Rfam assigns this 58-nucleotide sequence from Streptomyces sp. DJ to the family "msiK RNA".
[Rfam]
RNA sequence: GAAGGUCUUCCUUUACUCGGAUCGUCCGGCACGUUCCUGCCGGUGAAGGGACCCCUGA
Numbered sequence: 001g002a003a004g005g006u007c008u009u010c011c012u013u014u015a016c017u018c019g020g021a022u023c024g025u026c027c028g029g030c031a032c033g034u035u036c037c038u039g040c041c042g043g044u045g046a047a048g049g050g051a052c053c054c055c056u057g058a
Stems, first nucleotide, its partner, number of pairs: 009050007026043006

A search with the family's covariance model found it, with a score of 50 bits. By type it is a cis-regulatory element. The source organism's lineage runs through Bacteria, Bacillati, Actinomycetes, Kitasatosporales and Streptomyces.